[Rfam]
RNA sequence: CAUGGAGAAAGCCGACUUGGCUGGCAUUGUACAGAGAAGCCAGCUCAUUUACAUGCUUAUUCCAUG
Numbered sequence: 001c002a003u004g005g006a007g008a009a010a011g012c013c014g015a016c017u018u019g020g021c022u023g024g025c026a027u028u029g030u031a032c033a034g035a036g037a038a039g040c041c042a043g044c045u046c047a048u049u050u051a052c053a054u055g056c057u058u059a060u061u062c063c064a065u066g
Base pairs, nucleotide, nucleotide: 001066002065003064004063005062006061007060009058010057011056012055014049015048019045020044021043022042023041024040025039027031